[Rfam]
RNA sequence: UUAUAAGGAAAAAUUAACAUUUUAGAAUCAUUCGUUAAAUGAUGUAUGUAGUCUAUAAUAAAGACCACAUACAUCAUUUAAUGAAUGAAUCUAAAAUAUUAACUUUUGCUUAUAA
Numbered sequence: 001u002u003a004u005a006a007g008g009a010a011a012a013a014u015u016a017a018c019a020u021u022u023u024a025g026a027a028u029c030a031u032u033c034g035u036u037a038a039a040u041g042a043u044g045u046a047u048g049u050a051g052u053c054u055a056u057a058a059u060a061a062a063g064a065c066c067a068c069a070u071a072c073a074u075c076a077u078u079u080a081a082u083g084a085a086u087g088a089a090u091c092u093a094a095a096a097u098a099u100u101a102a103c104u105u106u107u108g109c110u111u112a113u114a115a
Stems, first nucleotide, its partner, number of pairs: 002114006009107004015101003019097007028088017049067001051065002
This 115-nucleotide RNA sequence from Medicago truncatula belongs to the Rfam family "MIR2593 microRNA precursor family". Rfam links the family to the GO terms miRNA-mediated post-transcriptional gene silencing and RISC complex. The organism belongs to Medicago, within Eukaryota. Pairs were carried over by alignment from the consensus structure, which was predicted with RNAalifold.